[Rfam]
RNA sequence: UUCGACAGGCGUAACUCCGAGCUAUGUUCGCUAAGUUAGAUGUUCAAUAAGCCUUCAUAGCCAGUGACAUUUUGUCACCAGGGUUCGUUUAGAAAUGAAUGGGCCUCCCGUAUUUGGAAAGGUGUUCCGUGGCGAUACAA
Numbered sequence: 001u002u003c004g005a006c007a008g009g010c011g012u013a014a015c016u017c018c019g020a021g022c023u024a025u026g027u028u029c030g031c032u033a034a035g036u037u038a039g040a041u042g043u044u045c046a047a048u049a050a051g052c053c054u055u056c057a058u059a060g061c062c063a064g065u066g067a068c069a070u071u072u073u074g075u076c077a078c079c080a081g082g083g084u085u086c087g088u089u090u091a092g093a094a095a096u097g098a099a100u101g102g103g104c105c106u107c108c109c110g111u112a113u114u115u116g117g118a119a120a121g122g123u124g125u126u127c128c129g130u131g132g133c134g135a136u137a138c139a140a
Base pairs, nucleotide, nucleotide: 003134004133006131013126014125015124017122018121021061022060023059024058025057026056030052031051035048036047037046064078065077066076067075068074081106082105083104084103085102086101087100088099089098090097091096107117108116
RNA: Molybdenum/Tungsten riboswitch aptamer (Moco RNA motif)
Organism: Vibrio sp. 99-8-1